[Rfam]
RNA: Small nucleolar RNA SNORD18
Organism: Trichonephila inaurata
Nucleotides: 065
Stems, first nucleotide, its partner, number of pairs: 001065004
Number, partner (000 for none) and nucleotide at each position: 001065u002064a003063c004062a005000g006000a007000u008000g009000a010000u011000g012000a013000u014000u015000c016000u017000u018000a019000u020000u021000g022000g023000u024000c025000c026000g027000u028000g029000u030000u031000u032000c033000u034000g035000a036000u037000c038000u039000c040000a041000g042000u043000g044000a045000u046000g047000u048000a049000u050000c051000a052000g053000c054000g055000a056000u057000u058000c059000u060000g061000a062004u063003g064002u065001a